[Rfam]
RNA sequence: CCACAAGUGAUGGAAAAUUCACUAUUUGGAAAAGAAUGACGACAAUAAAGGAGCCACUAAUGUGC
Numbered sequence: 001c002c003a004c005a006a007g008u009g010a011u012g013g014a015a016a017a018u019u020c021a022c023u024a025u026u027u028g029g030a031a032a033a034g035a036a037u038g039a040c041g042a043c044a045a046u047a048a049a050g051g052a053g054c055c056a057c058u059a060a061u062g063u064g065c
Base pairs, nucleotide, nucleotide: 002064003063004062005061
Dot-bracket structure: .((((.......................................................)))).